[Rfam]
RNA sequence: AGUGAGUGAGUAGUUCGCUGUAUCACUGAAGGGUGUGAGUAGUUCACACCAGCAAGCUUGCCUUGUGGGUUCCUUCAGUCAGGGGAAAGCUCACUUUUUU
Numbered sequence: 001a002g003u004g005a006g007u008g009a010g011u012a013g014u015u016c017g018c019u020g021u022a023u024c025a026c027u028g029a030a031g032g033g034u035g036u037g038a039g040u041a042g043u044u045c046a047c048a049c050c051a052g053c054a055a056g057c058u059u060g061c062c063u064u065g066u067g068g069g070u071u072c073c074u075u076c077a078g079u080c081a082g083g084g085g086a087a088a089g090c091u092c093a094c095u096u097u098u099u100u
Stems, first nucleotide, its partner, number of pairs: 001095007016083001018082003026078006032050007053065004
DUF3800-VII RNA: a 100-nucleotide RNA sequence. It is annotated as a small RNA. The base pairs follow the family's consensus structure, which is taken from published work.